A member of the RNA family "Plant small nucleolar RNA U3" from Camellia sinensis, 220 nucleotides long. Clan: U3 clan. A reference for the family is Zwieb (1997), "The uRNA database", Nucleic Acids Res. The source organism's lineage runs through Eukaryota, Streptophytina, Tracheophyta, Pentapetalae and Camellia sinensis. By type it is a C/D-box small nucleolar RNA.
RNA sequence: AUGACCUUACUUGAAAAGGAUCUGUUCUGUAGGAUUGUGUCUCCGAAUCCCUGAGCUCGAAGGAGUCAGGACCCAAAAUCUGAUGGAUGAACAAAAGCCUCAUGACCAGAGCGUGAUUAGUGGCUCUGUGGUGCGACUUGCUGGUCCACAGUUGCACAGGGGAUUGUUCUCACCUAAAGCGAACUUUGGCUGUGAGGGUCAAGUGGCUGUCUGAUAGAUU
Numbered sequence: 001a002u003g004a005c006c007u008u009a010c011u012u013g014a015a016a017a018g019g020a021u022c023u024g025u026u027c028u029g030u031a032g033g034a035u036u037g038u039g040u041c042u043c044c045g046a047a048u049c050c051c052u053g054a055g056c057u058c059g060a061a062g063g064a065g066u067c068a069g070g071a072c073c074c075a076a077a078a079u080c081u082g083a084u085g086g087a088u089g090a091a092c093a094a095a096a097g098c099c100u101c102a103u104g105a106c107c108a109g110a111g112c113g114u115g116a117u118u119a120g121u122g123g124c125u126c127u128g129u130g131g132u133g134c135g136a137c138u139u140g141c142u143g144g145u146c147c148a149c150a151g152u153u154g155c156a157c158a159g160g161g162g163a164u165u166g167u168u169c170u171c172a173c174c175u176a177a178a179g180c181g182a183a184c185u186u187u188g189g190c191u192g193u194g195a196g197g198g199u200c201a202a203g204u205g206g207c208u209g210u211c212u213g214a215u216a217g218a219u220u
Stems, first nucleotide, its partner, number of pairs: 001038002003035001005033003013027003017023002043069001045067002048064003052060001078219005097207003101203001103201005110168004120157003126151006134143002171192002174189006

Rfam's curators write: Small nucleolar RNAs (snoRNAs) are involved in the processing and modification of rRNA in the nucleolus. There are two main classes of snoRNAs: the box C/D class, and the box H/ACA class. U3 snoRNA is a member of the box C/D class. Indeed, the box C/D element is a subset of the six short sequence elements found in all U3 snoRNAs, namely boxes A, A', B, C, C', and D. The U3 snoRNA secondary structure is characterised by a small 5' domain (with boxes A and A'), and a larger 3' domain (with boxes B, C, C', and D), the two domains being linked by a single-stranded hinge.